[Rfam]
RNA sequence: UGGUUCAAGGAGCGUUGCGACAAACCGUCAAGGGUUUGCCAGGCUUGGACAAGGGUGCCGCAGGCGCCCAGCAACGACGCUCACCGAAU
Number, nucleotide and partner (000 for none) at each position: 001u000002g000003g050004u049005u048006c047007a046008a045009g000010g000011a000012g000013c000014g000015u000016u000017g000018c000019g000020a000021c038022a037023a036024a035025c034026c033027g000028u000029c000030a000031a000032g000033g026034g025035u024036u023037u022038g021039c000040c000041a000042g000043g000044c000045u008046u007047g006048g005049a004050c003051a000052a000053g000054g000055g000056u000057g000058c000059c000060g000061c000062a000063g000064g000065c000066g000067c000068c000069c000070a000071g000072c000073a000074a000075c000076g000077a000078c000079g000080c000081u000082c000083a000084c000085c000086g000087a000088a000089u000
The family of this 89-nucleotide RNA sequence from Paucibacter sp. KCTC 42545 is "SAH (S-adenosyl-L-homocysteine) riboswitch aptamer".